[Rfam]
RNA sequence: CGAGGUUCAGCUCGACCCCCCGGGGCUGAACCGACGACGACCCCCGCCAAUCCCCCCUGGCGGGGGUCGUCCUUA
Dot-bracket structure: .(.((((((((((.........))))))))))..)(((((((((((((..........)))))))))))))....
A member of the RNA family "6C RNA" from Pseudonocardia asaccharolytica, 75 nucleotides long. It is annotated as a cis-regulatory element. The family's consensus secondary structure is taken from published work. Taxonomically the source falls in Pseudonocardia asaccharolytica (Bacteria, Actinomycetes, Pseudonocardiales, Pseudonocardiaceae).